[Rfam]
Overview: A member of the RNA family "U2 spliceosomal RNA" from Trichinella papuae, 196 nucleotides long. It is annotated as a spliceosomal small nuclear RNA. The family's consensus secondary structure is taken from published work. NCBI's taxonomy places the organism under Eukaryota, Metazoa, Protostomia, Nematoda, Trichinella.

RNA sequence: UUUACUGUUUUGUCUUUCUGAAGUUCAAAUAAAACUAUCUGUUCUUAUCAGCUUAAUUUCUGGUAUGAAUCCCAAGUGGAUUCGAUAGAAAUUUGCAUAAGUCUUUGAAAAAACAGACAUUUGGUAGCAUGCUUGCACCUCCAUUUGUCGCGGGUCGGCCUGAUGUUGCACUACAUUCAGGAACGGCCUAUGCUUC
Numbered sequence: 001u002u003u004a005c006u007g008u009u010u011u012g013u014c015u016u017u018c019u020g021a022a023g024u025u026c027a028a029a030u031a032a033a034a035c036u037a038u039c040u041g042u043u044c045u046u047a048u049c050a051g052c053u054u055a056a057u058u059u060c061u062g063g064u065a066u067g068a069a070u071c072c073c074a075a076g077u078g079g080a081u082u083c084g085a086u087a088g089a090a091a092u093u094u095g096c097a098u099a100a101g102u103c104u105u106u107g108a109a110a111a112a113a114c115a116g117a118c119a120u121u122u123g124g125u126a127g128c129a130u131g132c133u134u135g136c137a138c139c140u141c142c143a144u145u146u147g148u149c150g151c152g153g154g155u156c157g158g159c160c161u162g163a164u165g166u167u168g169c170a171c172u173a174c175a176u177u178c179a180g181g182a183a184c185g186g187c188c189u190a191u192g193c194u195u196c
Base pairs, nucleotide, nucleotide: 008029009028010027012025014023015022046065047064048063049062050061051060067083068082069081070080071079072078116149117148118147119146122143123142130137131136152189153188154187155186156185157184159181160180161179162178163177
The match comes from Rfam's covariance-model search (87 bits).